The record is a 555-nucleotide part of an RNA from Oenococcus oeni, which matches "Bacterial large subunit ribosomal RNA" in Rfam.

RNA sequence: UAAUAAGGGCGCAUGGUGGAUGCCUUGGCACUAGAAGGCGAUGAAGGACGUGACUAACUACGAUAUGCCUCGGUUAGCUGUAAGUAAGCUUACCCGGGGGUUUCCGAAUGGGGCAACCCGAUCUUAAUGAUCAUCAUCUUUUUGAAUUCAUAGAUUAGAUGAAGCAAACGCUGUGAACUGAAACAUCUAAGUAGCAGUAGGAAAGUAAAGAAAUUUCGAUUCCGUCAGUAGCGGCGAGCGAACGCGGAAGAGCCCAAACCUGGAUGCUUGCAUCCAGGGGUUGUAGGACUGAUGUUGAGUUACAAAGGUAUAAGAUAGCAGAAACAGUUGGGAAGCUGUUCCAAAGAGGGUGACAGGCCCGUAUGCGAAAUCUUGUACUCUCUAAUCAGGAUCCUGAGUACGGCCCAGCACGUGAAAUUGGGUCGGAAUCUGGGAGGACCAUCUCCCAAGGCUAAAUACUAACUAGUGACCGAUAGCGAACAAGUACCGUGAGGGAAAGGUGAAAAGAACCCCGGAAGGGGAGUGAAAUAGUUCUUGAAACCGUGUGCUUACAAG
Numbered sequence: 001u002a003a004u005a006a007g008g009g010c011g012c013a014u015g016g017u018g019g020a021u022g023c024c025u026u027g028g029c030a031c032u033a034g035a036a037g038g039c040g041a042u043g044a045a046g047g048a049c050g051u052g053a054c055u056a057a058c059u060a061c062g063a064u065a066u067g068c069c070u071c072g073g074u075u076a077g078c079u080g081u082a083a084g085u086a087a088g089c090u091u092a093c094c095c096g097g098g099g100g101u102u103u104c105c106g107a108a109u110g111g112g113g114c115a116a117c118c119c120g121a122u123c124u125u126a127a128u129g130a131u132c133a134u135c136a137u138c139u140u141u142u143u144g145a146a147u148u149c150a151u152a153g154a155u156u157a158g159a160u161g162a163a164g165c166a167a168a169c170g171c172u173g174u175g176a177a178c179u180g181a182a183a184c185a186u187c188u189a190a191g192u193a194g195c196a197g198u199a200g201g202a203a204a205g206u207a208a209a210g211a212a213a214u215u216u217c218g219a220u221u222c223c224g225u226c227a228g229u230a231g232c233g234g235c236g237a238g239c240g241a242a243c244g245c246g247g248a249a250g251a252g253c254c255c256a257a258a259c260c261u262g263g264a265u266g267c268u269u270g271c272a273u274c275c276a277g278g279g280g281u282u283g284u285a286g287g288a289c290u291g292a293u294g295u296u297g298a299g300u301u302a303c304a305a306a307g308g309u310a311u312a313a314g315a316u317a318g319c320a321g322a323a324a325c326a327g328u329u330g331g332g333a334a335g336c337u338g339u340u341c342c343a344a345a346g347a348g349g350g351u352g353a354c355a356g357g358c359c360c361g362u363a364u365g366c367g368a369a370a371u372c373u374u375g376u377a378c379u380c381u382c383u384a385a386u387c388a389g390g391a392u393c394c395u396g397a398g399u400a401c402g403g404c405c406c407a408g409c410a411c412g413u414g415a416a417a418u419u420g421g422g423u424c425g426g427a428a429u430c431u432g433g434g435a436g437g438a439c440c441a442u443c444u445c446c447c448a449a450g451g452c453u454a455a456a457u458a459c460u461a462a463c464u465a466g467u468g469a470c471c472g473a474u475a476g477c478g479a480a481c482a483a484g485u486a487c488c489g490u491g492a493g494g495g496a497a498a499g500g501u502g503a504a505a506a507g508a509a510c511c512c513c514g515g516a517a518g519g520g521g522a523g524u525g526a527a528a529u530a531g532u533u534c535u536u537g538a539a540a541c542c543g544u545g546u547g548c549u550u551a552c553a554a555g
Stems, first nucleotide, its partner, number of pairs: 007550010022535001023500002027471002029468006036460002038165002046105003049062003068099006077089003110119003120132004134162006142154002169200001170198005180187002210217002220456001221248005231239002251453004259278007285395003289389005305381001307379010318366003324339005342346001348360003401425008432447005487494002510521004